[Rfam]
The family of this 264-nucleotide RNA sequence from Cohnella rhizosphaerae is "Bacterial large signal recognition particle RNA". The literature on the family includes a 2003 paper in Nucleic Acids Res by Rosenblad et al., "SRPDB: Signal Recognition Particle Database". NCBI's taxonomy places the organism under Bacteria, Bacillati, Bacillota, Paenibacillaceae, Cohnella.
RNA sequence: CCGUGCUAGAUGGGGAGGUAGCGGUGCCCUGUCACUCGCAAUCCGCUAUAGCGAGAUCGAAUUCCUGUUUGAGGUCAUGCCACGCAGUUCCGGCUUCGUCCCGGCGCGUUGAUCGCAGGGUCCUUCGCGAGGGACGCCCAUGAACCCGGUCAGGUCCGGAAGGAAGCAGCCGUAAGUGGUCACGUUCUUGUGCUGAAGGGUAGCCCUUCGGGAGCGUACGAGCGAGGUACGGCUGGAUGGCAUCGAUCGAGGGCAGGUGCACGG
Numbered sequence: 001c002c003g004u005g006c007u008a009g010a011u012g013g014g015g016a017g018g019u020a021g022c023g024g025u026g027c028c029c030u031g032u033c034a035c036u037c038g039c040a041a042u043c044c045g046c047u048a049u050a051g052c053g054a055g056a057u058c059g060a061a062u063u064c065c066u067g068u069u070u071g072a073g074g075u076c077a078u079g080c081c082a083c084g085c086a087g088u089u090c091c092g093g094c095u096u097c098g099u100c101c102c103g104g105c106g107c108g109u110u111g112a113u114c115g116c117a118g119g120g121u122c123c124u125u126c127g128c129g130a131g132g133g134a135c136g137c138c139c140a141u142g143a144a145c146c147c148g149g150u151c152a153g154g155u156c157c158g159g160a161a162g163g164a165a166g167c168a169g170c171c172g173u174a175a176g177u178g179g180u181c182a183c184g185u186u187c188u189u190g191u192g193c194u195g196a197a198g199g200g201u202a203g204c205c206c207u208u209c210g211g212g213a214g215c216g217u218a219c220g221a222g223c224g225a226g227g228u229a230c231g232g233c234u235g236g237a238u239g240g241c242a243u244c245g246a247u248c249g250a251g252g253g254c255a256g257g258u259g260c261a262c263g264g
Base pairs, nucleotide, nucleotide: 001264002263003262004261005260006259009058010057011056012030013029014028015027017025019023035055036054037053038052039051064257065256066255067254068253069252070251073248074247075246076245079241080240081239082238085235086234087233088232093230094227095226096225097224098223099222102220103219105216106215107214113211114210115209117207118206119205120204121203122199123198124197125196126195127194128190129189131188132187133186134185135184136181138179139178140177141176147172148171149170150169155164156163157162